Flavo-1 RNA: a 102-nucleotide RNA sequence from Halpernia frigidisoli. A search with the family's covariance model found it, with a score of 68 bits. The family's RNA type in Rfam is small RNA.
Nucleotides: 102
Base pairs, nucleotide, nucleotide: 009094010093011092013090014089018085019084023080024079025078029075030074031073032072033071034070
Number, partner (000 for none) and nucleotide at each position: 001000u002000a003000a004000u005000a006000g007000c008000c009094c010093u011092g012000a013090u014089a015000g016000a017000a018085g019084c020000g021000g022000c023080a024079u025078c026000c027000u028000u029075u030074u031073u032072u033071u034070u035000a036000u037000c038000u039000a040000a041000a042000a043000u044000a045000u046000a047000u048000c049000u050000u051000u052000c053000a054000g055000u056000a057000a058000c059000a060000a061000u062000a063000u064000c065000a066000u067000c068000u069000c070034a071033a072032a073031a074030a075029a076000a077000a078025g079024a080023u081000a082000c083000a084019g085018c086000g087000g088000a089014u090013a091000g092011c093010a094009g095000g096000a097000u098000u099000a100000a101000g102000c